[Rfam]
About this RNA
Shown here is a 78-nucleotide RNA from Pontixanthobacter luteolus, a member of the family "Makes More Granules Regulator RNA (mmgR)". Lineage of the source: Bacteria > Pseudomonadati > Alphaproteobacteria > Sphingomonadales > Pontixanthobacter. Rfam describes the family as follows. SuhB later renamed mmgR (makes more granules regulator) was a putative non-coding RNA found multiple times in the Agrobacterium tumefaciens genome and related alpha-proteobacteria. Other non-coding RNAs uncovered in the same analysis include: speF, ybhL, metA, and serC.Several studies inSinorhizobium meliloti showed that suhB element is indeed a non-coding RNA:firstly it was detected on Northern blot and called Sm8RNA, secondly in an RNAseq study referred to as SmelC689.The mutant phenotype's (strain lacking the small RNA) cytoplasm contains higher content of polyhydroxybutyrate (PBH)storage granules than wild type strain. Rfam links the family to the GO terms response to nitrogen compound, DNA-templated transcription, termination and protein binding. It scores 46 bits against the family's covariance model. Pairs were carried over by alignment from the consensus structure.
RNA sequence: GAGAGGGGCCUUUUAGGCAUCCUCUCCCAAACUUUCAUAGGCCCGGUCGGCAACGACUGGGCCUUUUUUCUUUGCGGC
Numbered sequence: 001g002a003g004a005g006g007g008g009c010c011u012u013u014u015a016g017g018c019a020u021c022c023u024c025u026c027c028c029a030a031a032c033u034u035u036c037a038u039a040g041g042c043c044c045g046g047u048c049g050g051c052a053a054c055g056a057c058u059g060g061g062c063c064u065u066u067u068u069u070c071u072u073u074g075c076g077g078c
Stems, first nucleotide, its partner, number of pairs: 008018004040063009